[Rfam]
RNA sequence: UUGUUUCUCUUAAUGGCACUGGAAGAAUUCACGGUUUUUACACAAUCAUAUCGUCCGUGGAUUCUCCUGUGCCUCGAAGAGCAACUA
Numbered sequence: 001u002u003g004u005u006u007c008u009c010u011u012a013a014u015g016g017c018a019c020u021g022g023a024a025g026a027a028u029u030c031a032c033g034g035u036u037u038u039u040a041c042a043c044a045a046u047c048a049u050a051u052c053g054u055c056c057g058u059g060g061a062u063u064c065u066c067c068u069g070u071g072c073c074u075c076g077a078a079g080a081g082c083a084a085c086u087a
Base pairs, nucleotide, nucleotide: 003085004084005083007081008080009079010078015073016072017071018070021067022066025063026062029060030059031058032057033056034055

Record summary
This 87-nucleotide RNA sequence from Leptotrombidium deliense belongs to the Rfam family "mir-263 microRNA precursor family". Clan: mir-182 clan. NCBI's taxonomy places the organism under Eukaryota, Protostomia, Acariformes, Trombiculoidea, Leptotrombidium. A reference for the family is Li et al. (2009), "Direct sequencing and expression analysis of a large number of miRNAs in Aedes aegypti and a multi-species survey of novel mosquito miRNAs", BMC Genomics. Gene Ontology terms of the family: miRNA-mediated post-transcriptional gene silencing and RISC complex.